[Rfam]
RNA sequence: CGGCUAUAGCCAGAUCGAUUAGAAGCUAUCUGGCCGGUGGUCGCGAGAGAGAUUUAGAUCUCUCCGAUCGAUUCAUCUGCUUACCGAGUUUCUUACAUGU
Number, nucleotide and partner (000 for none) at each position: 001c000002g000003g000004c000005u000006a000007u000008a000009g000010c000011c000012a000013g000014a000015u000016c000017g000018a000019u000020u000021a093022g092023a091024a090025g089026c088027u087028a000029u000030c000031u000032g081033g080034c079035c000036g077037g076038u075039g074040g072041u071042c070043g069044c000045g000046a000047g000048a000049g000050a000051g000052a000053u000054u000055u000056a000057g000058a000059u000060c000061u000062c000063u000064c000065c000066g000067a000068u000069c043070g042071a041072u040073u000074c039075a038076u037077c036078u000079g034080c033081u032082u000083a000084c000085c000086g000087a027088g026089u025090u024091u023092c022093u021094u000095a000096c000097a000098u000099g000100u000
Rfam assigns this 100-nucleotide RNA from Microthlaspi erraticum to the family "Small nucleolar RNA snoR109". It is annotated as an H/ACA-box small nucleolar RNA. Lineage of the source: Eukaryota > Tracheophyta > Gunneridae > Pentapetalae > Microthlaspi. Pairs were carried over by alignment from the consensus structure, which was predicted with WAR.